[Rfam]
RNA: mir-146 microRNA precursor family
Organism: Myripristis murdjan
RNA sequence: AUGAUUGUUUGGCCUUGAGAACUGAGUUCCAUAGAUGGUUGAUGAUGACUGUCCACCUAUGGUAUCAGUUCUUUUUGCCAGACAGUUUGAC
Number, nucleotide and partner (000 for none) at each position: 001a000002u000003g000004a000005u000006u000007g000008u082009u081010u000011g079012g078013c077014c000015u000016u000017g000018a072019g071020a070021a069022c068023u067024g066025a065026g000027u000028u000029c000030c000031a000032u000033a000034g056035a000036u000037g000038g000039u000040u000041g000042a000043u000044g000045a000046u000047g000048a000049c000050u000051g000052u000053c000054c000055a000056c034057c000058u000059a000060u000061g000062g000063u000064a000065u025066c024067a023068g022069u021070u020071c019072u018073u000074u000075u000076u000077g013078c012079c011080a000081g009082a008083c000084a000085g000086u000087u000088u000089g000090a000091c000